[Rfam]
RNA sequence: AACAUGUGCACGGGGUGCGAAGCAGAUCAGUCUGCUAGCUGAGAUUAUACCCGAGACCUGAUUUGGAUAAUGCCAACGUAGGAAUGCCUUGCACUUCAUUU
Numbered sequence: 001a002a003c004a005u006g007u008g009c010a011c012g013g014g015g016u017g018c019g020a021a022g023c024a025g026a027u028c029a030g031u032c033u034g035c036u037a038g039c040u041g042a043g044a045u046u047a048u049a050c051c052c053g054a055g056a057c058c059u060g061a062u063u064u065g066g067a068u069a070a071u072g073c074c075a076a077c078g079u080a081g082g083a084a085u086g087c088c089u090u091g092c093a094c095u096u097c098a099u100u101u
Stems, first nucleotide, its partner, number of pairs: 006089001008087003011053004016047001017039002020036001057082004063076004

Overview: The family of this 101-nucleotide RNA from Parapedobacter sp. SGR-10 is "TPP riboswitch aptamer (THI element)". The base pairs follow the family's consensus structure, which is taken from published work.